[Rfam]
RNA sequence: GCAACCUCAAACUCGCACACGGCAACACGGUGGUGUUUCGCUCCGUGCUGGGCGCGAGCUGGAUGUGGUUUAUCGGCUCCGUGCUGAUGAGCCAAUUCCCCGUGAUUGCCAAGGAUGUGCUG
Numbered sequence: 001g002c003a004a005c006c007u008c009a010a011a012c013u014c015g016c017a018c019a020c021g022g023c024a025a026c027a028c029g030g031u032g033g034u035g036u037u038u039c040g041c042u043c044c045g046u047g048c049u050g051g052g053c054g055c056g057a058g059c060u061g062g063a064u065g066u067g068g069u070u071u072a073u074c075g076g077c078u079c080c081g082u083g084c085u086g087a088u089g090a091g092c093c094a095a096u097u098c099c100c101c102g103u104g105a106u107u108g109c110c111a112a113g114g115a116u117g118u119g120c121u122g
Base pairs, nucleotide, nucleotide: 010049012047014045015044017042021038022037025034026033051121052120053119054118055117059113060112062110064104065103067099068098072096073095075093076092077091078090079089081088082087

Annotation
Shown here is a 122-nucleotide RNA from Allofranklinella schreckenbergeri, a member of the family "Burkholderia RNA 11". The base pairs follow the family's consensus structure, which was predicted with RNAfold. It is annotated as a small RNA. Rfam links the family to the GO term protein binding. The organism belongs to Allofranklinella, within Bacteria.